[Rfam]
Small nucleolar RNA SNORD58: a 66-nucleotide RNA sequence from Dissostichus mawsoni.
Gene Ontology terms of the family: nucleolus and RNA processing.
Rfam describes the family as follows. snoRNA U58 is found in introns 1, 3 and 6 of the ribosomal protein RPL17 gene in humans.
The source organism's lineage runs through Eukaryota, Vertebrata, Eurypterygia, Acanthomorphata and Dissostichus.
It is annotated as a C/D-box small nucleolar RNA.
A reference for the family is Galardi et al. (2002), "Purified box C/D snoRNPs are able to reproduce site-specific 2'-O-methylation of target RNA in vitro", Mol Cell Biol.
RNA sequence: CUGCAAUGAUGACCAAUUAGGACACCUUUGAUUCUCCAUGAAGACGACUUUUUAAAUCUGAGCAGC
Numbered sequence: 001c002u003g004c005a006a007u008g009a010u011g012a013c014c015a016a017u018u019a020g021g022a023c024a025c026c027u028u029u030g031a032u033u034c035u036c037c038a039u040g041a042a043g044a045c046g047a048c049u050u051u052u053u054a055a056a057u058c059u060g061a062g063c064a065g066c
Stems, first nucleotide, its partner, number of pairs: 001065004